[Rfam]
RNA: SAM riboswitch aptamer (S box leader)
Organism: Caldithrix abyssi
RNA sequence: UUCUUAUCCAGAAAGGUGGAGGGAACAGGCCCUGUGAAGCCUUAGCAACCUUUCCCGUUGAACCGCGGGAAAAGGUGCUAAUUCCUGCCCCAACUUACGGGGAAAGAUAAGAA
Numbered sequence: 001u002u003c004u005u006a007u008c009c010a011g012a013a014a015g016g017u018g019g020a021g022g023g024a025a026c027a028g029g030c031c032c033u034g035u036g037a038a039g040c041c042u043u044a045g046c047a048a049c050c051u052u053u054c055c056c057g058u059u060g061a062a063c064c065g066c067g068g069g070a071a072a073a074g075g076u077g078c079u080a081a082u083u084c085c086u087g088c089c090c091c092a093a094c095u096u097a098c099g100g101g102g103a104a105a106g107a108u109a110a111g112a113a
Stems, first nucleotide, its partner, number of pairs: 001113008013043005021032003026087004044079004049075002051071004083105001088102004